[Rfam]
RNA sequence: AGCGAUAUGAGGAGAUUCUUUACAUUCCGCGUUGAGCCAUUCUGUGGCUGUGAUUCUUCAACGCAUUUUGUCUUCAAAGUUCUCUGAUCGCU
Numbered sequence: 001a002g003c004g005a006u007a008u009g010a011g012g013a014g015a016u017u018c019u020u021u022a023c024a025u026u027c028c029g030c031g032u033u034g035a036g037c038c039a040u041u042c043u044g045u046g047g048c049u050g051u052g053a054u055u056c057u058u059c060a061a062c063g064c065a066u067u068u069u070g071u072c073u074u075c076a077a078a079g080u081u082c083u084c085u086g087a088u089c090g091c092u
Base pairs, nucleotide, nucleotide: 001092002091003090004089005088

The record is a 92-nucleotide sequence from Closterium sp. NIES-68, which matches "Small nucleolar RNA R160" in Rfam.
Rfam 15.1 lists 799 matches to the family in 221 species.
snoR160 is a C/D box small nucleolar RNA, which acts as a methylation guide for 25S ribosomal RNA in plants. snoR160 has been alternatively named snoZ270 in rice.
Gene Ontology terms of the family: nucleolus and RNA processing.